[Rfam]
RNA: MIR807 microRNA precursor family
Organism: Oryza barthii
RNA sequence: UACUACACUAUCAAUGAAUGGAUUCAGCCGUAAGAUGAUGUGGUUGUUCCAUCUAGGAUGAGGAUGUGGUAUCCUAUUAAUUUCGUGCGAUGGCUGGUAAUAGGAUGCCAUGUCUUCGUCCUAGGUGAAACAACCACUUCAUCUCACAGGUAAAUCCAUUCAUCGAAUAUGUGGUU
Numbered sequence: 001u002a003c004u005a006c007a008c009u010a011u012c013a014a015u016g017a018a019u020g021g022a023u024u025c026a027g028c029c030g031u032a033a034g035a036u037g038a039u040g041u042g043g044u045u046g047u048u049c050c051a052u053c054u055a056g057g058a059u060g061a062g063g064a065u066g067u068g069g070u071a072u073c074c075u076a077u078u079a080a081u082u083u084c085g086u087g088c089g090a091u092g093g094c095u096g097g098u099a100a101u102a103g104g105a106u107g108c109c110a111u112g113u114c115u116u117c118g119u120c121c122u123a124g125g126u127g128a129a130a131c132a133a134c135c136a137c138u139u140c141a142u143c144u145c146a147c148a149g150g151u152a153a154a155u156c157c158a159u160u161c162a163u164c165g166a167a168u169a170u171g172u173g174g175u176u
Stems, first nucleotide, its partner, number of pairs: 002175006011166002014163002017160003021156004026151001028149001030147002033144001035142004041136008051126002054123002057120002063114003069108011086097001
Dot-bracket structure: .((((((...((.((.(((.((((.(.(.((.(.((((..((((((((..((.((.((....(((...(((((((((((......(..........))))))))))))...)))....)).)).))..))))))))..)))).).)).).).)))).))).)).))...)))))).